[Rfam]
RNA sequence: CUAACUUCCCGUUAGGUGAGGCUCCUGUGCGAAUACAGGCCACUGCCCGGAAAUGUCGAGAGACACCAAUGGGUUAGCAGGUUUUGCCGGAUUAAGGUAAAAUCUAAUGUGGCUGGAACAAGAUUCCAAAGUCGCACAGUGCUAAAACCGAUGACGAGGGGAAAGUAUU
Numbered sequence: 001c002u003a004a005c006u007u008c009c010c011g012u013u014a015g016g017u018g019a020g021g022c023u024c025c026u027g028u029g030c031g032a033a034u035a036c037a038g039g040c041c042a043c044u045g046c047c048c049g050g051a052a053a054u055g056u057c058g059a060g061a062g063a064c065a066c067c068a069a070u071g072g073g074u075u076a077g078c079a080g081g082u083u084u085u086g087c088c089g090g091a092u093u094a095a096g097g098u099a100a101a102a103u104c105u106a107a108u109g110u111g112g113c114u115g116g117a118a119c120a121a122g123a124u125u126c127c128a129a130a131g132u133c134g135c136a137c138a139g140u141g142c143u144a145a146a147a148c149c150g151a152u153g154a155c156g157a158g159g160g161g162a163a164a165g166u167a168u169u
Stems, first nucleotide, its partner, number of pairs: 005165003009161002011155002013095001015149003020143003025139008039113005045074005054065004080104004086098003115127003

Rfam assigns this 169-nucleotide sequence from Tepidanaerobacter syntrophicus to the family "M-box riboswitch aptamer (ykoK leader)". Pairs were carried over by alignment from the consensus structure. About the family: M-box riboswitch, also know as ykoK leader is described as a metaloregulatory RNA that sense divalent metals and function as a genetic control element of genes related to divalent metal transport in bacteria. Rfam 15.1 lists 1,095 matches to the family in 932 species. Rfam links the family to the GO terms response to magnesium ion and regulation of gene expression. A search with the family's covariance model found it, with a score of 153 bits. A reference for the family is Barrick et al. (2004), "New RNA motifs suggest an expanded scope for riboswitches in bacterial genetic control", Proc Natl Acad Sci U S A.